[Rfam]
RNA sequence: GGCCUUGGAAGCGGGGCGGGUUGGGCCUAUAUAGGUUUCGUCCGGGUUCGCCCGGACUAUGGCGAUAAACGCGCUUGUAAUAAGCGGACCGGACCCGGGUGCGAUUCCCGGCGGCUCCACCAAUCGCUCCCCGUUAUCGGUGGGAGAUGCGGGGCCGACUAGCAUCGACGGACGUGUAAAGAAGACUGCUUUCGCUCGUCCUGGCCCACCGUAUCGGGCCAUUUUCUAACUGCGAACGAUAACUUCGCUGGAGAAGUCCGCCUCGCCGCGUAAUGCGGUUCGGUUGAUUUCGAAUCUUAAGUCCUAGGGGUUCAGAUCCCUGGGCGGGGCCUGUCGGGGAGCCUGCCAACAGAAUCCCCGGCG
Numbered sequence: 001g002g003c004c005u006u007g008g009a010a011g012c013g014g015g016g017c018g019g020g021u022u023g024g025g026c027c028u029a030u031a032u033a034g035g036u037u038u039c040g041u042c043c044g045g046g047u048u049c050g051c052c053c054g055g056a057c058u059a060u061g062g063c064g065a066u067a068a069a070c071g072c073g074c075u076u077g078u079a080a081u082a083a084g085c086g087g088a089c090c091g092g093a094c095c096c097g098g099g100u101g102c103g104a105u106u107c108c109c110g111g112c113g114g115c116u117c118c119a120c121c122a123a124u125c126g127c128u129c130c131c132c133g134u135u136a137u138c139g140g141u142g143g144g145a146g147a148u149g150c151g152g153g154g155c156c157g158a159c160u161a162g163c164a165u166c167g168a169c170g171g172a173c174g175u176g177u178a179a180a181g182a183a184g185a186c187u188g189c190u191u192u193c194g195c196u197c198g199u200c201c202u203g204g205c206c207c208a209c210c211g212u213a214u215c216g217g218g219c220c221a222u223u224u225u226c227u228a229a230c231u232g233c234g235a236a237c238g239a240u241a242a243c244u245u246c247g248c249u250g251g252a253g254a255a256g257u258c259c260g261c262c263u264c265g266c267c268g269c270g271u272a273a274u275g276c277g278g279u280u281c282g283g284u285u286g287a288u289u290u291c292g293a294a295u296c297u298u299a300a301g302u303c304c305u306a307g308g309g310g311u312u313c314a315g316a317u318c319c320c321u322g323g324g325c326g327g328g329g330c331c332u333g334u335c336g337g338g339g340a341g342c343c344u345g346c347c348a349a350c351a352g353a354a355u356c357c358c359c360g361g362c363g
Stems, first nucleotide, its partner, number of pairs: 040057007061196005071189003074184003085174002089171003095111005112157007197211002202221006327344004335360006
Rfam assigns this 363-nucleotide RNA from Brevundimonas goettingensis to the family "Alphaproteobacteria transfer-messenger RNA". Rfam classes the family as a non-coding RNA gene. The match comes from Rfam's covariance-model search (219 bits).